Shown here is a 440-nucleotide part of an RNA from Chlorochromatium aggregatum, a member of the family "Bacterial large subunit ribosomal RNA".
On this family, see Yusupov et al., Science 2001: "Crystal structure of the ribosome at 5.5 A resolution".
NCBI's taxonomy places the organism under Bacteria, Chlorochromatium.
Pairs were carried over by alignment from the consensus structure, which is taken from published work.
Rfam links the family to the GO terms ribosome and structural constituent of ribosome.
RNA sequence: CUCUCCGAAAACUAUUUAGGUAGUGCCUCAGGUAUUACCGCUGGGGGUAGAGCGCUGUUUUGGCUAGGGGGUCAUGGCGACUUACCAAACCAAUGCAAACUCCGAAUACCAGCGAGUAGAGCCUGGGAGACAGAGCACCGGGUGCUAACGUCCGGACUCAAGAGGGAAACAACCCAGACCGCCAGCUAAGGUCCCCAAAAUUGGCUAAGUGGGAAACGAAGUGGGAAGGCUAAAACAGUCAGGAUGUUGGCUUAGAAGCAGCCAUCAUUUAAAGAAAGCGUAAUAGCUCACUGAUCGAGUCGUUCUGCGCGGAAGAUGUAACGGGGCUAAGCCAGUUACCGAAGCUGCGGAUUCGCAAGGAAUUGCGAGUGGUAGGAGAGCGUUCUGUAAGCCUGUGAAGGUGCGUCGGGAGGCGUGCUGGAGGUAUCAGAAGUGCGAAU
Numbered sequence: 001c002u003c004u005c006c007g008a009a010a011a012c013u014a015u016u017u018a019g020g021u022a023g024u025g026c027c028u029c030a031g032g033u034a035u036u037a038c039c040g041c042u043g044g045g046g047g048u049a050g051a052g053c054g055c056u057g058u059u060u061u062g063g064c065u066a067g068g069g070g071g072u073c074a075u076g077g078c079g080a081c082u083u084a085c086c087a088a089a090c091c092a093a094u095g096c097a098a099a100c101u102c103c104g105a106a107u108a109c110c111a112g113c114g115a116g117u118a119g120a121g122c123c124u125g126g127g128a129g130a131c132a133g134a135g136c137a138c139c140g141g142g143u144g145c146u147a148a149c150g151u152c153c154g155g156a157c158u159c160a161a162g163a164g165g166g167a168a169a170c171a172a173c174c175c176a177g178a179c180c181g182c183c184a185g186c187u188a189a190g191g192u193c194c195c196c197a198a199a200a201u202u203g204g205c206u207a208a209g210u211g212g213g214a215a216a217c218g219a220a221g222u223g224g225g226a227a228g229g230c231u232a233a234a235a236c237a238g239u240c241a242g243g244a245u246g247u248u249g250g251c252u253u254a255g256a257a258g259c260a261g262c263c264a265u266c267a268u269u270u271a272a273a274g275a276a277a278g279c280g281u282a283a284u285a286g287c288u289c290a291c292u293g294a295u296c297g298a299g300u301c302g303u304u305c306u307g308c309g310c311g312g313a314a315g316a317u318g319u320a321a322c323g324g325g326g327c328u329a330a331g332c333c334a335g336u337u338a339c340c341g342a343a344g345c346u347g348c349g350g351a352u353u354c355g356c357a358a359g360g361a362a363u364u365g366c367g368a369g370u371g372g373u374a375g376g377a378g379a380g381c382g383u384u385c386u387g388u389a390a391g392c393c394u395g396u397g398a399a400g401g402u403g404c405g406u407c408g409g410g411a412g413g414c415g416u417g418c419u420g421g422a423g424g425u426a427u428c429a430g431a432a433g434u435g436c437g438a439a440u
Stems, first nucleotide, its partner, number of pairs: 001380006011024005026129001027127007036120001037117002039114006050103001051101002056097003060093004067086002069083005133159003138155006164175003179350004184346003190340003199337007217311002221308006228301003238295005244268003249263003269273001274289001278287002351370008381435001383432005391425003400419008